[Rfam]
RNA sequence: CGCUUAUCCAGAGAGGCAGAGGGACCGGCCCGAUGAAGCCUCGGCAACCUCCAGGGAAUCCCUGGAACGGUGCCAAUUCCGGCAGCGACUACUGGAAGAUGAGCG
Numbered sequence: 001c002g003c004u005u006a007u008c009c010a011g012a013g014a015g016g017c018a019g020a021g022g023g024a025c026c027g028g029c030c031c032g033a034u035g036a037a038g039c040c041u042c043g044g045c046a047a048c049c050u051c052c053a054g055g056g057a058a059u060c061c062c063u064g065g066a067a068c069g070g071u072g073c074c075a076a077u078u079c080c081g082g083c084a085g086c087g088a089c090u091a092c093u094g095g096a097a098g099a100u101g102a103g104c105g
Base pairs, nucleotide, nucleotide: 001105002104003103004102005101006100007099008098013042014041015040016039017038021031022030023029025082026081027080028079043074044073045072046071048070049069050066051065052064053063078097083094084093085092